Rfam assigns this 76-nucleotide sequence from Gossypium raimondii to the family "MIR7486 microRNA precursor family". Pairs were carried over by alignment from the consensus structure, which was predicted with RNAalifold. Lineage of the source: Eukaryota > Tracheophyta > Malvales > Malvaceae > Gossypium.
RNA sequence: AGCGCAACCUGCUGACGUGGAAGGAAAUCGCUACCUCAGGGACGCGAUUUCCUUCCACGUCGGCUAGGUCGCGCUG
Numbered sequence: 001a002g003c004g005c006a007a008c009c010u011g012c013u014g015a016c017g018u019g020g021a022a023g024g025a026a027a028u029c030g031c032u033a034c035c036u037c038a039g040g041g042a043c044g045c046g047a048u049u050u051c052c053u054u055c056c057a058c059g060u061c062g063g064c065u066a067g068g069u070c071g072c073g074c075u076g
Stems, first nucleotide, its partner, number of pairs: 001075005007069004011064005017058015034041002